A member of the RNA family "Glycine riboswitch aptamer" from Sphingomonas rhizophila, 97 nucleotides long.
NCBI's taxonomy places the organism under Bacteria, Pseudomonadota, Sphingomonadales, Sphingomonadaceae, Sphingomonas.
A search with the family's covariance model found it, with a score of 55 bits.

RNA sequence: GGAGGACGCGCGGGAGAGUGUCCGGACCGCAAGGGCCGGACCGCCGAAGGAGCAACCGCCCCGGAAUCUCUCAGGCAGGCAGGACCGCGCGCGCCUG
Numbered sequence: 001g002g003a004g005g006a007c008g009c010g011c012g013g014g015a016g017a018g019u020g021u022c023c024g025g026a027c028c029g030c031a032a033g034g035g036c037c038g039g040a041c042c043g044c045c046g047a048a049g050g051a052g053c054a055a056c057c058g059c060c061c062c063g064g065a066a067u068c069u070c071u072c073a074g075g076c077a078g079g080c081a082g083g084a085c086c087g088c089g090c091g092c093g094c095c096u097g
Base pairs, nucleotide, nucleotide: 007091008090009089010088011087012086013085020041021040022039023038024037025036043076044075045074046072047071050070051069052068056064057063